The record is a 90-nucleotide RNA sequence from Proteiniclasticum sediminis, which matches "NiCo (Nickel/Cobalt) riboswitch aptamer" in Rfam.
Rfam links the family to the GO terms cobalt ion binding and metal ion homeostasis.
It scores 80 bits against the family's covariance model.
RNA sequence: ACAAUACAAACUGAGCAGGCGAUGCCGUCAUGGCAUGGGGCCGGGCCGAUUUUUCGGCAGCAGAUGACAAGCCGCAUCUGUGGGACAGUG
Number, nucleotide and partner (000 for none) at each position: 001a000002c000003a000004a000005u000006a000007c000008a000009a000010a089011c088012u087013g086014a000015g000016c084017a000018g042019g041020c040021g000022a036023u035024g034025c033026c032027g031028u000029c000030a000031u027032g026033g025034c024035a023036u022037g000038g000039g000040g020041c019042c018043g000044g000045g058046c057047c056048g055049a054050u000051u000052u000053u000054u049055c048056g047057g046058c045059a000060g081061c080062a079063g078064a077065u076066g000067a000068c000069a000070a000071g000072c000073c000074g000075c000076a065077u064078c063079u062080g061081u060082g000083g000084g016085a000086c013087a012088g011089u010090g000